[Rfam]
RNA sequence: UUGCCUUAAACUAAUGAGUAAGGAAAAUAACGAUCUGGGUGACGCCAGAUCUUCGCACAGUUUAUGCGUAUGAAUUUCUGAAGGGAAGAGGUCGCCCUUGGAUAGCUCGCUUACUUUCGCGGGUAAUCCUUGUGGAAGCGAUCUCCGCC
Numbered sequence: 001u002u003g004c005c006u007u008a009a010a011c012u013a014a015u016g017a018g019u020a021a022g023g024a025a026a027a028u029a030a031c032g033a034u035c036u037g038g039g040u041g042a043c044g045c046c047a048g049a050u051c052u053u054c055g056c057a058c059a060g061u062u063u064a065u066g067c068g069u070a071u072g073a074a075u076u077u078c079u080g081a082a083g084g085g086a087a088g089a090g091g092u093c094g095c096c097c098u099u100g101g102a103u104a105g106c107u108c109g110c111u112u113a114c115u116u117u118c119g120c121g122g123g124u125a126a127u128c129c130u131u132g133u134g135g136a137a138g139c140g141a142u143c144u145c146c147g148c149c
Stems, first nucleotide, its partner, number of pairs: 004023005032051007054068004083149002085146001089144007097132001100129004106123005
The record is a 149-nucleotide RNA from Paramuricea clavata, which matches "U12 minor spliceosomal RNA" in Rfam. A reference for the family is Tarn and Steitz (1997), "Pre-mRNA splicing: the discovery of a new spliceosome doubles the challenge", Trends Biochem Sci. Rfam classes the family as a spliceosomal small nuclear RNA. The match comes from Rfam's covariance-model search (104 bits). The base pairs follow the family's consensus structure.